[Rfam]
RNA sequence: UAUGCCAUCGCGGGAGAGACUGGUGCCUGACACCAGCGCCGAAGGAGCAACGACCCCGGAAACUCUCAGGCCAACGGACCGCGACGGCCAU
Numbered sequence: 001u002a003u004g005c006c007a008u009c010g011c012g013g014g015a016g017a018g019a020c021u022g023g024u025g026c027c028u029g030a031c032a033c034c035a036g037c038g039c040c041g042a043a044g045g046a047g048c049a050a051c052g053a054c055c056c057c058g059g060a061a062a063c064u065c066u067c068a069g070g071c072c073a074a075c076g077g078a079c080c081g082c083g084a085c086g087g088c089c090a091u
Stems, first nucleotide, its partner, number of pairs: 006086001008084006020036004038071003041067002045065003051058002
Rfam assigns this 91-nucleotide sequence to the family "Glycine riboswitch aptamer". Gene Ontology term of the family: glycine biosynthetic process. The match comes from Rfam's covariance-model search (73 bits).